[Rfam]
RNA sequence: GUACUCUUUGGUUACAGUUGUUCAACCGGUUACUCAUCUAGUUAAUUGUAACCGGUUGAACAAUUGAACCUAAAGGGUGCAAA
Numbered sequence: 001g002u003a004c005u006c007u008u009u010g011g012u013u014a015c016a017g018u019u020g021u022u023c024a025a026c027c028g029g030u031u032a033c034u035c036a037u038c039u040a041g042u043u044a045a046u047u048g049u050a051a052c053c054g055g056u057u058g059a060a061c062a063a064u065u066g067a068a069c070c071u072a073a074a075g076g077g078u079g080c081a082a083a
Stems, first nucleotide, its partner, number of pairs: 003078008015066012029052005